[Rfam]
RNA sequence: GCAUGGGUUUGGAUUUAUGGCAGGUCCGUCCCCCUGGGCCUCUCAUAGUGUCCCAUGCUAGAGCAAACUGGCCCCAAACCAUUGCCCAGUCUCUGCCUGUGGGCUGCUGGCACUGAAGGGAGUUGCACAGGG
Number, nucleotide and partner (000 for none) at each position: 001g058002c057003a056004u055005g053006g052007g051008u050009u000010u000011g000012g000013a000014u000015u048016u047017a046018u045019g044020g043021c000022a041023g040024g039025u037026c036027c000028g000029u000030c000031c000032c000033c000034c000035u000036g026037g025038g000039c024040c023041u022042c000043u020044c019045a018046u017047a016048g015049u000050g008051u007052c006053c005054c000055a004056u003057g002058c001059u000060a000061g000062a000063g000064c000065a000066a000067a000068c000069u125070g124071g123072c122073c000074c120075c000076a000077a000078a000079c000080c115081a114082u000083u000084g000085c110086c109087c106088a105089g104090u103091c102092u101093c000094u000095g000096c000097c000098u000099g000100u000101g092102g091103g090104c089105u088106g087107c000108u000109g086110g085111c000112a000113c000114u081115g080116a000117a000118g000119g000120g074121a000122g072123u071124u070125g069126c000127a000128c000129a000130g000131g000132g000

The record is a 132-nucleotide RNA sequence from Tupaia belangeri, which matches "Small nucleolar RNA SNORA42/SNORA80 family" in Rfam. It scores 136 bits against the family's covariance model. The literature on the family includes a 2006 paper in RNA by Schattner et al., "A computational screen for mammalian pseudouridylation guide H/ACA RNAs". The family's consensus secondary structure was predicted with RNAalifold. Its family is annotated with RNA processing and nucleolus in the Gene Ontology. Rfam classes the family as an H/ACA-box small nucleolar RNA. Rfam describes the family as follows. The members of this family belong to the H/ACA class of snoRNAs that guide the sites of modification of uridines to pseudouridines.